[Rfam]
RNA sequence: ACACUAAAAUAAGCGCUGGUACUUGCUGCCUGGCAAGUAGACGAGGGAGAGGUUUAUCGAGAUGUACUUCAGCGGAUACCUCUCGGCUAGCUUCAGUCGAGAGCAACUGGCAAAACUACAGGGUGACCUGCAGGACAAAUUCAGUUGCAGAGCCAAAA
Numbered sequence: 001a002c003a004c005u006a007a008a009a010u011a012a013g014c015g016c017u018g019g020u021a022c023u024u025g026c027u028g029c030c031u032g033g034c035a036a037g038u039a040g041a042c043g044a045g046g047g048a049g050a051g052g053u054u055u056a057u058c059g060a061g062a063u064g065u066a067c068u069u070c071a072g073c074g075g076a077u078a079c080c081u082c083u084c085g086g087c088u089a090g091c092u093u094c095a096g097u098c099g100a101g102a103g104c105a106a107c108u109g110g111c112a113a114a115a116c117u118a119c120a121g122g123g124u125g126a127c128c129u130g131c132a133g134g135a136c137a138a139a140u141u142c143a144g145u146u147g148c149a150g151a152g153c154c155a156a157a158a
Stems, first nucleotide, its partner, number of pairs: 020039008048083005057072001059070002084099005103148007116133002119130004
Overview:
The record is a 158-nucleotide RNA from Anaerospora hongkongensis, which matches "glmS glucosamine-6-phosphate activated ribozyme aptamer" in Rfam. Gene Ontology terms of the family: regulation of gene expression and catalytic activity. This entry contains a glucosamine-6-phosphate activated ribozyme that is found in the mRNA for GlmS. GlmS is an enzyme that uses fructose-6-phosphate and glutamine to generate glucosamine-6-phosphate. The ribozyme catalyses self cleavage of the glmS mRNA that is thought to regulate GlmS activity.